[Rfam]
RNA sequence: UUAGCAGACUUAUCUUAUCGCCAGGCUUUUAGCCUGGAGGAAAGUCCGAACACCACAGAGUAUUCAUAGCGGAUAACAUCCGUCCAACGUAAGUUGAGGACAAGUGCAACAGAAAGCAAGUACAGGUAAUGCUGUAGUGAAACCAGGUAAACUCUAUGAGGUGCAAUGCCAUGUAUAUUAGAGCUUGAGAGUUACUCGCUCAAUUCUAAAGGGUAGGCAGUUAGAUUUUAAAAGUAAUUUUAAAACUAGAUAAAUGAUAAGAACCUAAAAAUUUAGGUACAGAAUUCGGCUUAUAAGUCUGCUUUUACU
Numbered sequence: 001u002u003a004g005c006a007g008a009c010u011u012a013u014c015u016u017a018u019c020g021c022c023a024g025g026c027u028u029u030u031a032g033c034c035u036g037g038a039g040g041a042a043a044g045u046c047c048g049a050a051c052a053c054c055a056c057a058g059a060g061u062a063u064u065c066a067u068a069g070c071g072g073a074u075a076a077c078a079u080c081c082g083u084c085c086a087a088c089g090u091a092a093g094u095u096g097a098g099g100a101c102a103a104g105u106g107c108a109a110c111a112g113a114a115a116g117c118a119a120g121u122a123c124a125g126g127u128a129a130u131g132c133u134g135u136a137g138u139g140a141a142a143c144c145a146g147g148u149a150a151a152c153u154c155u156a157u158g159a160g161g162u163g164c165a166a167u168g169c170c171a172u173g174u175a176u177a178u179u180a181g182a183g184c185u186u187g188a189g190a191g192u193u194a195c196u197c198g199c200u201c202a203a204u205u206c207u208a209a210a211g212g213g214u215a216g217g218c219a220g221u222u223a224g225a226u227u228u229u230a231a232a233a234g235u236a237a238u239u240u241u242a243a244a245a246c247u248a249g250a251u252a253a254a255u256g257a258u259a260a261g262a263a264c265c266u267a268a269a270a271a272u273u274u275a276g277g278u279a280c281a282g283a284a285u286u287c288g289g290c291u292u293a294u295a296a297g298u299c300u301g302c303u304u305u306u307a308c309u
Base pairs, nucleotide, nucleotide: 003303004302005301006300007299008298009297010296012294013262014261015260016259017258018257019256021037022036023035024034025033026032027031042292043291044290046289047288048287049286050285051163052162053161054160058197059196060195061194064159065158066157067156068155069083070082071081072080073079084098085096086095087094088093099154100153104152105151106148107147121136122135123134124133125132167219168218169217170216178209179208180207181206182205189201190200191199192198226245227244228243229242230241231240232239233238

Shown here is a 309-nucleotide sequence from Polaribacter porphyrae, a member of the family "Bacterial RNase P class A". It scores 197 bits against the family's covariance model. Gene Ontology terms of the family: tRNA processing, dimeric ribonuclease P complex and ribonuclease P activity. NCBI's taxonomy places the organism under Bacteria, Pseudomonadati, Bacteroidota, Flavobacteriia, Polaribacter. Rfam classes the family as a ribozyme.